[Rfam]
RNA sequence: GGGCGAGGACGACCUCCCCACCACGGGUAUUGAUGCCGGGACGGCCCGG
Numbered sequence: 001g002g003g004c005g006a007g008g009a010c011g012a013c014c015u016c017c018c019c020a021c022c023a024c025g026g027g028u029a030u031u032g033a034u035g036c037c038g039g040g041a042c043g044g045c046c047c048g049g
Stems, first nucleotide, its partner, number of pairs: 002019002005016004036049005
This 49-nucleotide RNA sequence from Paracoccus alcaliphilus belongs to the Rfam family "Guanidine-II riboswitch aptamer (mini-ykkC)". NCBI's taxonomy places the organism under Bacteria, Pseudomonadota, Alphaproteobacteria, Rhodobacterales, Paracoccus. The literature on the family includes a 2007 paper in Nucleic Acids Res by Weinberg et al., "Identification of 22 candidate structured RNAs in bacteria using the CMfinder comparative genomics pipeline".